Rfam assigns this 250-nucleotide RNA from Streptococcus pasteurianus to the family "FMN riboswitch aptamer (RFN element)". The base pairs follow the family's consensus structure, which is taken from published work. About the family: The RFN element is a highly conserved domain that is found frequently in the 5'-untranslated regions of prokaryotic mRNAs that encode for flavin mononucleotide (FMN) biosynthesis and transport proteins. This element is a metabolite-dependent riboswitch that directly binds FMN in the absence of proteins. In Bacillus subtilis, the riboswitch most likely controls gene expression by causing premature transcription termination within the 5' untranslated region of the ribDEAHT operon and precluding access to the ribosome-binding site of ypaA mRNA.The FMN riboswitch structure, reported in present an FMN-bound six-stem junction, adopts a butterfly-like scaffold, stapled together by opposingly directed but nearly identically folded peripheral domains.
RNA sequence: AGUUUUCUUCGGGGUGGGGUGUGAUUCCCGACCGACGGUGAUUCUUUGUCGUUGAUUGCUAUUUGCUUUUAUUCGUUGUUGACGCCUCUUGCCUAACACCAGUUAUGUCUGCGAGGUGUCGCCUAGACUAAAAGCAAAUCAUCAAUCAACUUUGUUUGAUAAUCAAAUGAGCAAAGAUAAGUCCGUGAGCGCAAGCUGAUCUGGUGCGAUUCCAGAACCGACAGUAUAGUCUGGAUGGGAGAAGAAAUUG
Numbered sequence: 001a002g003u004u005u006u007c008u009u010c011g012g013g014g015u016g017g018g019g020u021g022u023g024a025u026u027c028c029c030g031a032c033c034g035a036c037g038g039u040g041a042u043u044c045u046u047u048g049u050c051g052u053u054g055a056u057u058g059c060u061a062u063u064u065g066c067u068u069u070u071a072u073u074c075g076u077u078g079u080u081g082a083c084g085c086c087u088c089u090u091g092c093c094u095a096a097c098a099c100c101a102g103u104u105a106u107g108u109c110u111g112c113g114a115g116g117u118g119u120c121g122c123c124u125a126g127a128c129u130a131a132a133a134g135c136a137a138a139u140c141a142u143c144a145a146u147c148a149a150c151u152u153u154g155u156u157u158g159a160u161a162a163u164c165a166a167a168u169g170a171g172c173a174a175a176g177a178u179a180a181g182u183c184c185g186u187g188a189g190c191g192c193a194a195g196c197u198g199a200u201c202u203g204g205u206g207c208g209a210u211u212c213c214a215g216a217a218c219c220g221a222c223a224g225u226a227u228a229g230u231c232u233g234g235a236u237g238g239g240a241g242a243a244g245a246a247a248u249u250g
Stems, first nucleotide, its partner, number of pairs: 004247007017029003031230002033220002035186004189196002200216005222233003